[Rfam]
RNA sequence: GCCGGUCCUCGGUAGUGGCUUCCGGUAACAAACACACUUGACCGGGCGCUUCGAUCGAAGACCGGC
Numbered sequence: 001g002c003c004g005g006u007c008c009u010c011g012g013u014a015g016u017g018g019c020u021u022c023c024g025g026u027a028a029c030a031a032a033c034a035c036a037c038u039u040g041a042c043c044g045g046g047c048g049c050u051u052c053g054a055u056c057g058a059a060g061a062c063c064g065g066c
Stems, first nucleotide, its partner, number of pairs: 001066007009058005017050003021046006029040003
RNA: Actino-pnp RNA
Organism: Nonomuraea fuscirosea